RNA sequence: CGAGCAUCAAUGAUGAGCCCUAAAAUUGUUAUCCUUGCACUUUGAUUGUCAGUGAAGAAACUCAUGGGGAAUUUUUUUUCUGAGAUGCUC
Numbered sequence: 001c002g003a004g005c006a007u008c009a010a011u012g013a014u015g016a017g018c019c020c021u022a023a024a025a026u027u028g029u030u031a032u033c034c035u036u037g038c039a040c041u042u043u044g045a046u047u048g049u050c051a052g053u054g055a056a057g058a059a060a061c062u063c064a065u066g067g068g069g070a071a072u073u074u075u076u077u078u079u080c081u082g083a084g085a086u087g088c089u090c
Stems, first nucleotide, its partner, number of pairs: 002090007
RNA: Small nucleolar RNA snoR26